[Rfam]
RNA: Guanidine-I riboswitch aptamer
RNA sequence: GGCAAAUGUCCCUAGGGUUCCGGCGCCGCCGAUCGCGGCGCGGCUGGUCCGAGAGGGGCAGCCCGGCGGCGGUUCAUCCGCGUCCUGCCGGGUCCACGGCGGGACAAAAGCCCGGGAGGC
Number, nucleotide and partner (000 for none) at each position: 001g000002g000003c000004a000005a000006a000007u060008g059009u058010c057011c056012c055013u000014a000015g050016g049017g000018u000019u000020c047021c046022g044023g041024c040025g039026c038027c037028g036029c000030c000031g000032a000033u000034c000035g000036c028037g027038g026039c025040g024041c023042g000043g000044c022045u000046g021047g020048u000049c016050c015051g000052a000053g000054a000055g012056g011057g010058g009059c008060a007061g093062c092063c091064c090065g089066g088067c087068g086069g000070c000071g000072g000073u000074u000075c000076a000077u000078c000079c000080g000081c000082g000083u000084c000085c000086u068087g067088c066089c065090g064091g063092g062093u061094c000095c115096a000097c118098g000099g000100c000101g113102g112103g111104a000105c000106a000107a000108a000109a000110g000111c103112c102113c101114g000115g095116g000117a000118g097119g000120c000